The record is a 129-nucleotide RNA sequence from Artemisia annua, which matches "mir-172 microRNA precursor family" in Rfam. Rfam 15.1 lists 2,076 matches to the family in 219 species. The match comes from Rfam's covariance-model search (75 bits). Rfam's curators write: mir-172 has been experimentally verified in Arabidopsis thaliana. This family is thought to target mRNAs coding for APETALA2-like transcription factors. The mature sequence is excised from the 3' arm of the hairpin. Taxonomically the source falls in Artemisia (Eukaryota, Viridiplantae, Gunneridae, Asterales).
RNA sequence: GUUCUUGCUGAUGCAGUAUCUUUAAGAUUCACAAAUAGGGUUUUAUGAGCUUCUUCUUCUUAGCUUUAUUAAUCCAAAAAAAUAAUAAGUAUAGUUUGCGAAUCUUGAUGAUGCUGCAGCGGCAAUUGC
Numbered sequence: 001g002u003u004c005u006u007g008c009u010g011a012u013g014c015a016g017u018a019u020c021u022u023u024a025a026g027a028u029u030c031a032c033a034a035a036u037a038g039g040g041u042u043u044u045a046u047g048a049g050c051u052u053c054u055u056c057u058u059c060u061u062a063g064c065u066u067u068a069u070u071a072a073u074c075c076a077a078a079a080a081a082a083u084a085a086u087a088a089g090u091a092u093a094g095u096u097u098g099c100g101a102a103u104c105u106u107g108a109u110g111a112u113g114c115u116g117c118a119g120c121g122g123c124a125a126u127u128g129c
Stems, first nucleotide, its partner, number of pairs: 010120001012118009022108009032098005